[Rfam]
RNA sequence: UAUUGUUAAUAUAUAAUUUAAGUAUAAAUUAAAUAUUGAAUUGAUAUUUAGGUAUUUGAAAAUACCUUACAUAGAGUCAGAAGGCUUUUGCUUUCUGACUUUUUUAUUAUCAAAAUUCAAUAAUUAUAUGGAUUCAAAGUGUUAAUUUUUAUUCUAUAUUCUACUUUCCCCAAAAGUAAGAAUUAUACCCAACUUUGUAUGAUAGGCAUCUUGCCUAUCUUUUUUUUGUAAAAGUAA
Number, nucleotide and partner (000 for none) at each position: 001u000002a000003u000004u000005g000006u000007u000008a000009a000010u000011a000012u000013a000014u031015a030016a029017u028018u027019u026020a025021a000022g000023u000024a000025u020026a019027a018028a017029u016030u015031a014032a000033a000034u122035a121036u120037u119038g118039a117040a116041u113042u112043g111044a110045u109046a108047u000048u000049u000050a067051g066052g065053u064054a063055u062056u061057u000058g000059a000060a000061a056062a055063u054064a053065c052066c051067u050068u000069a000070c000071a000072u000073a102074g101075a100076g099077u098078c097079a096080g095081a094082a093083g092084g091085c090086u000087u000088u000089u000090g085091c084092u083093u082094u081095c080096u079097g078098a077099c076100u075101u074102u073103u000104u000105u000106a000107u000108u046109a045110u044111c043112a042113a041114a000115a000116u040117u039118c038119a037120a036121u035122a034123a000124u000125u000126a159127u158128a157129u156130g155131g154132a153133u000134u000135c000136a149137a148138a147139g146140u145141g000142u000143u000144a000145a140146u139147u138148u137149u136150u000151a000152u000153u132154c131155u130156a129157u128158a127159u126160u181161c180162u178163a177164c176165u175166u174167u173168c000169c000170c000171c000172a000173a167174a166175a165176g164177u163178a162179a000180g161181a160182a000183u000184u000185a000186u000187a000188c000189c000190c000191a000192a235193c234194u233195u232196u231197g000198u230199a229200u228201g219202a218203u217204a216205g215206g214207c213208a212209u000210c000211u000212u208213g207214c206215c205216u204217a203218u202219c201220u000221u000222u000223u000224u000225u000226u000227u000228g200229u199230a198231a196232a195233a194234g193235u192236a000237a000